[Rfam]
RNA: atpB RNA
Nucleotides: 133
Stems, first nucleotide, its partner, number of pairs: 001044011070098008079089001
Number, partner (000 for none) and nucleotide at each position: 001044c002043u003042g004041c005040g006039g007038c008037c009036a010035u011034u012000c013000c014000g015000g016000g017000a018000u019000g020000a021000g022000c023000g024000a025000c026000g027000g028000a029000g030000u031000c032000a033000c034011g035010g036009u037008g038007g039006c040005c041004g042003c043002g044001g045000a046000c047000u048000g049000a050000c051000u052000g053000g054000c055000a056000c057000g058000a059000c060000c061000u062000c063000c064000a065000u066000c067000g068000c069000a070098c071097c072096g073095u074094g075093c076092g077091g078000a079089g080000c081000c082000c083000g084000c085000c086000g087000g088000c089079c090000g091077c092076c093075g094074c095073a096072c097071g098070g099000c100000c101000c102000c103000u104000a105000g106000a107000a108000c109000g110000g111000g112000a113000g114000a115000g116000a117000a118000c119000g120000c121000u122000g123000a124000g125000c126000g127000u128000u129000a130000c131000g132000a133000c